[Rfam]
RNA sequence: GUAGCGCCCGGUGAUACAACCGGGCGAGGAUUGAAAC
Numbered sequence: 001g002u003a004g005c006g007c008c009c010g011g012u013g014a015u016a017c018a019a020c021c022g023g024g025c026g027a028g029g030a031u032u033g034a035a036a037c
Base pairs, nucleotide, nucleotide: 005026006025007024008023009022010021011020012019

Rfam assigns this 37-nucleotide RNA from Nitrosospira sp. Nsp1 to the family "CRISPR RNA direct repeat element".